RNA: Small nucleolar RNA Z161/Z228
Organism: Tripterygium wilfordii
RNA sequence: AAAUCAGGUGAUGAAAUUGGAUUAAAUUUCUCACGACGGUCAUCUGAGACACUCUCUGAGUUGUCGGCGUUGAUACAAUUAUCCAAUACUUCUGAUGAUU
Numbered sequence: 001a002a003a004u005c006a007g008g009u010g011a012u013g014a015a016a017u018u019g020g021a022u023u024a025a026a027u028u029u030c031u032c033a034c035g036a037c038g039g040u041c042a043u044c045u046g047a048g049a050c051a052c053u054c055u056c057u058g059a060g061u062u063g064u065c066g067g068c069g070u071u072g073a074u075a076c077a078a079u080u081a082u083c084c085a086a087u088a089c090u091u092c093u094g095a096u097g098a099u100u
Stems, first nucleotide, its partner, number of pairs: 001100002004097001050063002